Plastid-psbN 5UTR RNA: a 55-nucleotide RNA from Prunus armeniaca.
The family has 63 seed sequences and 2,345 matches in Rfam 15.1.
NCBI's taxonomy places the organism under Eukaryota, Embryophyta, Rosales, Amygdaleae, Prunus.
It is annotated as a cis-regulatory element.
Plastid psbN is a non-coding RNA (ncRNA) recognised in plastids. It was reported as a conserved 11 stem-loop in the prime untranslated region (5UTR) of psbN genes. It has been reported that the motif is retained in a subset of mature transcripts in barley, which can suggests a possible role in transcript alternative 5 prime processing.
The family's consensus secondary structure was predicted with LocARNA.
RNA sequence: UGGUACUAAAGGAGUAGUUCCCCACCCAUGAGCUACUUUACCAUAUUCUGAAUUC
Numbered sequence: 001u002g003g004u005a006c007u008a009a010a011g012g013a014g015u016a017g018u019u020c021c022c023c024a025c026c027c028a029u030g031a032g033c034u035a036c037u038u039u040a041c042c043a044u045a046u047u048c049u050g051a052a053u054u055c
Stems, first nucleotide, its partner, number of pairs: 011039010